[Rfam]
Background
The record is a 102-nucleotide RNA from Vulpes vulpes, which matches "mir-8834 microRNA precursor family" in Rfam. Pairs were carried over by alignment from the consensus structure, which was predicted with RNAalifold. Rfam links the family to the GO terms miRNA-mediated post-transcriptional gene silencing and RISC complex. Rfam 15.1 lists 13,926 matches to the family in 17 species.
RNA sequence: AGGAACAACAGUGGUAGUGUCCAGCUCUCCAGCCCUGGAUUCAGCUCCUGCAGUAACUGGGGCAGCUCUCAGUCUUCAGGGGCCUGGAUGUUCCAGGGGCAG
Numbered sequence: 001a002g003g004a005a006c007a008a009c010a011g012u013g014g015u016a017g018u019g020u021c022c023a024g025c026u027c028u029c030c031a032g033c034c035c036u037g038g039a040u041u042c043a044g045c046u047c048c049u050g051c052a053g054u055a056a057c058u059g060g061g062g063c064a065g066c067u068c069u070c071a072g073u074c075u076u077c078a079g080g081g082g083c084c085u086g087g088a089u090g091u092u093c094c095a096g097g098g099g100c101a102g
Base pairs, nucleotide, nucleotide: 002094003093004092005091006090007089009086010085011084013074014073015072017070019068023067024066025065026064027062028061029060030059031058035053036052037051